[Rfam]
RNA sequence: AAGAACUCCGAGCCAAUAAAUAAUGAGAGGAUUGACUCAAGAACAAA
Number, nucleotide and partner (000 for none) at each position: 001a000002a000003g000004a000005a000006c000007u041008c000009c000010g038011a037012g036013c000014c034015a033016a032017u031018a000019a000020a000021u000022a000023a000024u000025g000026a000027g000028a000029g000030g000031a017032u016033u015034g014035a000036c012037u011038c010039a000040a000041g007042a000043a000044c000045a000046a000047a000

A member of the RNA family "Plastid-rpl16 group II-D1 intron" from Ziziphus jujuba, 47 nucleotides long. The family's consensus secondary structure was predicted with LocARNA. The match comes from Rfam's covariance-model search (55 bits). The literature on the family includes a 2023 paper in Plant Commun by Richter et al., "Retrograde signaling in plants: A critical review focusing on the GUN pathway and beyond". Plastid-rpl16 is a non-coding RNA (ncRNA) recognised in plastids.